The record is an 80-nucleotide RNA from Catagonus wagneri, which matches "small Cajal body-specific RNA 18" in Rfam.
[Rfam]
RNA sequence: UGGUCGAUGAUGACGUGACCACUGCGCAAUCUGAGAUCUCAGAAGCAGGUGAUGGAGUUUGUGCUAAUGAUCUGAGACCG
Numbered sequence: 001u002g003g004u005c006g007a008u009g010a011u012g013a014c015g016u017g018a019c020c021a022c023u024g025c026g027c028a029a030u031c032u033g034a035g036a037u038c039u040c041a042g043a044a045g046c047a048g049g050u051g052a053u054g055g056a057g058u059u060u061g062u063g064c065u066a067a068u069g070a071u072c073u074g075a076g077a078c079c080g
Stems, first nucleotide, its partner, number of pairs: 002079004038048002
About the family: scaRNAs are a specific class of small nuclear RNAs which localise to the Cajal bodies and guide the modification of RNA polymerase II transcribed spliceosomal RNAs U1, U2, U4, U5 and U12. The family has 20 seed sequences and 406 matches in Rfam 15.1.